[Rfam]
RNA sequence: UUAGAUAUAGGGAAUGAAGUUCUCCCUUGAUAAUAUAUCUAAACCGCAUAUUAUGCUGAUGACUUCUGUAAUAAU
Numbered sequence: 001u002u003a004g005a006u007a008u009a010g011g012g013a014a015u016g017a018a019g020u021u022c023u024c025c026c027u028u029g030a031u032a033a034u035a036u037a038u039c040u041a042a043a044c045c046g047c048a049u050a051u052u053a054u055g056c057u058g059a060u061g062a063c064u065u066c067u068g069u070a071a072u073a074a075u
Base pairs, nucleotide, nucleotide: 010026011025012024013023016066017065018064019063020062021061046056047055048054
The record is a 75-nucleotide RNA from Clostridium sp. DSM 8431, which matches "Fluoride riboswitch aptamer (crcB RNA motif)" in Rfam.
The base pairs follow the family's consensus structure, which is taken from published work.